Overview: The record is a 75-nucleotide RNA sequence from Streptosporangium carneum, which matches "ASpks TB sRNA" in Rfam.
RNA sequence: UUUGAGGGAGCCGAGCCAUAGGGGGUGGCCGGUGUCUCUGCCCUGGCCGUAGGUGGCCAGGAGGGCUUGGGCUUC
Numbered sequence: 001u002u003u004g005a006g007g008g009a010g011c012c013g014a015g016c017c018a019u020a021g022g023g024g025g026u027g028g029c030c031g032g033u034g035u036c037u038c039u040g041c042c043c044u045g046g047c048c049g050u051a052g053g054u055g056g057c058c059a060g061g062a063g064g065g066c067u068u069g070g071g072c073u074u075c
Stems, first nucleotide, its partner, number of pairs: 014026001016024002033069001038065002043060003047056003
The base pairs follow the family's consensus structure, which is taken from published work. NCBI's taxonomy places the organism under Bacteria, Actinomycetota, Actinomycetes, Streptosporangiaceae, Streptosporangium.